[Rfam]
RNA sequence: CGGGCGGCCGCCUCAGGUACUAGGUGACUCUGAGUGGUGCCGGUCUCAGAGCCGCCUCGUGCCUCAGCGCGGGCUCCG
Numbered sequence: 001c002g003g004g005c006g007g008c009c010g011c012c013u014c015a016g017g018u019a020c021u022a023g024g025u026g027a028c029u030c031u032g033a034g035u036g037g038u039g040c041c042g043g044u045c046u047c048a049g050a051g052c053c054g055c056c057u058c059g060u061g062c063c064u065c066a067g068c069g070c071g072g073g074c075u076c077c078g
Stems, first nucleotide, its partner, number of pairs: 001078004009071002012067001015064006023056004028051006034044002
Dot-bracket structure: ((((....((.(..((((((..((((.((((((((.......)).)))))).))))..))))))..)..))...))))
The record is a 78-nucleotide RNA from Bombyx mori, which matches "mir-306 microRNA precursor family" in Rfam. The base pairs follow the family's consensus structure, which was predicted with RNAalifold. Gene Ontology terms of the family: RISC complex and miRNA-mediated post-transcriptional gene silencing. Lineage of the source: Eukaryota > Allotriocarida > Ditrysia > Bombycidae > Bombyx.